RNA: Aggregatibacter sRNA 22
RNA sequence: GUGCGGUGACAAAAUCCCGAUAGGAAUUUUGAACGCCACUUGUGGCGUGGGCAAAGCCCCGAACAAUCCUGUAAAGGAUUGUGAGUAAUUUUACCGC
Numbered sequence: 001g002u003g004c005g006g007u008g009a010c011a012a013a014a015u016c017c018c019g020a021u022a023g024g025a026a027u028u029u030u031g032a033a034c035g036c037c038a039c040u041u042g043u044g045g046c047g048u049g050g051g052c053a054a055a056g057c058c059c060c061g062a063a064c065a066a067u068c069c070u071g072u073a074a075a076g077g078a079u080u081g082u083g084a085g086u087a088a089u090u091u092u093a094c095c096g097c
Stems, first nucleotide, its partner, number of pairs: 010031006017024001034047005049059004063082008085094003